[Rfam]
Shown here is an 89-nucleotide RNA sequence from Panagrellus redivivus, a member of the family "mir-31 microRNA precursor family". Rfam links the family to the GO terms gene silencing by miRNA and RISC complex. Taxonomically the source falls in Panagrellus (Eukaryota, Opisthokonta, Eumetazoa, Protostomia). Rfam 15.1 lists 1,181 matches to the family in 783 species. Its Rfam clan is "mir-31 microRNA precursor family".
RNA sequence: GUUGGCGGACAAGGCAAGAUGUUGGCAUAGCUGAGUCCCAUUCAAUAUUUGUAUCUCAGCCAUGCUACAUAGGGCCAUGUCUGCGCUUC
Numbered sequence: 001g002u003u004g005g006c007g008g009a010c011a012a013g014g015c016a017a018g019a020u021g022u023u024g025g026c027a028u029a030g031c032u033g034a035g036u037c038c039c040a041u042u043c044a045a046u047a048u049u050u051g052u053a054u055c056u057c058a059g060c061c062a063u064g065c066u067a068c069a070u071a072g073g074g075c076c077a078u079g080u081c082u083g084c085g086c087u088u089c
Base pairs, nucleotide, nucleotide: 005084006083007082008081009080010079011078013076014075015074019070020069021068023067024066025065026064027063028062030060031059032058033057034056035055